[Rfam]
RNA: Flavobacterium-1 RNA
RNA sequence: CCGAGCUAGGGGUACAAGUCCUGCAGUAUUGCGUUCCUCUGGACCUAAGCAUAGUGCCGAAAGGCCUGCGACGACGCUCGGCGUUAAGGAAGAGAGUAUCGGACGCGAUGUCUUCCUUGACG
Number, nucleotide and partner (000 for none) at each position: 001c081002c080003g079004a078005g077006c076007u074008a000009g072010g046011g045012g044013u043014a000015c041016a040017a000018g000019u000020c000021c000022u033023g032024c031025a030026g000027u000028a000029u000030u025031g024032c023033g022034u000035u000036c000037c000038u000039c000040u016041g015042g000043a013044c012045c011046u010047a000048a000049g069050c068051a000052u000053a000054g000055u000056g000057c064058c063059g000060a000061a000062a000063g058064g057065c000066c000067u000068g050069c049070g000071a000072c009073g000074a007075c000076g006077c005078u004079c003080g002081g001082c000083g121084u120085u119086a118087a117088g116089g115090a114091a113092g112093a111094g000095a000096g000097u000098a000099u108100c107101g106102g000103a000104c000105g000106c101107g100108a099109u000110g000111u093112c092113u091114u090115c089116c088117u087118u086119g085120a084121c083122g000